[Rfam]
RNA sequence: AAGUAUUACAGUUCUUUUAGAAUUCGUUUAGCAGGUUUUCUAGUGUUUACUUGAAAGCCCCU
Numbered sequence: 001a002a003g004u005a006u007u008a009c010a011g012u013u014c015u016u017u018u019a020g021a022a023u024u025c026g027u028u029u030a031g032c033a034g035g036u037u038u039u040c041u042a043g044u045g046u047u048u049a050c051u052u053g054a055a056a057g058c059c060c061c062u
Stems, first nucleotide, its partner, number of pairs: 034059007042051003